[Rfam]
Annotation:
The record is a 132-nucleotide RNA from Psychrobacter piechaudii, which matches "Glycine riboswitch aptamer" in Rfam. A reference for the family is Mandal et al. (2004), "A glycine-dependent riboswitch that uses cooperative binding to control gene expression", Science. It scores 60 bits against the family's covariance model.
RNA sequence: GGGCGUUUUUCAGGAGAGCGCAGUGACCUUUUUGACCCUAUAUUAUUAUUAAACUAGGGCUAUUAAACCUGACUGCCACCGAAGGCGUAAGCACCCUGCCAAUCGCUCAGGUAACCGGACUGAAUAACUCAU
Numbered sequence: 001g002g003g004c005g006u007u008u009u010u011c012a013g014g015a016g017a018g019c020g021c022a023g024u025g026a027c028c029u030u031u032u033u034g035a036c037c038c039u040a041u042a043u044u045a046u047u048a049u050u051a052a053a054c055u056a057g058g059g060c061u062a063u064u065a066a067a068c069c070u071g072a073c074u075g076c077c078a079c080c081g082a083a084g085g086c087g088u089a090a091g092c093a094c095c096c097u098g099c100c101a102a103u104c105g106c107u108c109a110g111g112u113a114a115c116c117g118g119a120c121u122g123a124a125u126a127a128c129u130c131a132u
Base pairs, nucleotide, nucleotide: 006127007126009124010123011122012121013120020076021075022074023073078112079111080110081108082107085106086105087104091099092098